A member of the RNA family "Actinobacteria sRNA Ms_IGR-5" from Barrientosiimonas humi, 204 nucleotides long. Pairs were carried over by alignment from the consensus structure. It is annotated as a small RNA.

RNA sequence: ACACGAGAGAGGAGGUGGUCCAGGAGUGAAUUCUUCAAGGACGCGUGAGGUGGCCGCGCGCUAGCGCUGACCAUCCGUCGGCACCUCCGGUGCCCGACCUAGGACGGCGCCGGCAAUCCCAGCCGGUCACCGCAACCCGUGGGAGCACGACUCGUCCAUCGUGCGCCCGUUGGCCCCGCCAGCGGAACCCACGGGUUGUCUCAU
Numbered sequence: 001a002c003a004c005g006a007g008a009g010a011g012g013a014g015g016u017g018g019u020c021c022a023g024g025a026g027u028g029a030a031u032u033c034u035u036c037a038a039g040g041a042c043g044c045g046u047g048a049g050g051u052g053g054c055c056g057c058g059c060g061c062u063a064g065c066g067c068u069g070a071c072c073a074u075c076c077g078u079c080g081g082c083a084c085c086u087c088c089g090g091u092g093c094c095c096g097a098c099c100u101a102g103g104a105c106g107g108c109g110c111c112g113g114c115a116a117u118c119c120c121a122g123c124c125g126g127u128c129a130c131c132g133c134a135a136c137c138c139g140u141g142g143g144a145g146c147a148c149g150a151c152u153c154g155u156c157c158a159u160c161g162u163g164c165g166c167c168c169g170u171u172g173g174c175c176c177c178g179c180c181a182g183c184g185g186a187a188c189c190c191a192c193g194g195g196u197u198g199u200c201u202c203a204u
Stems, first nucleotide, its partner, number of pairs: 015057005060114003064110006071103002133198011145164006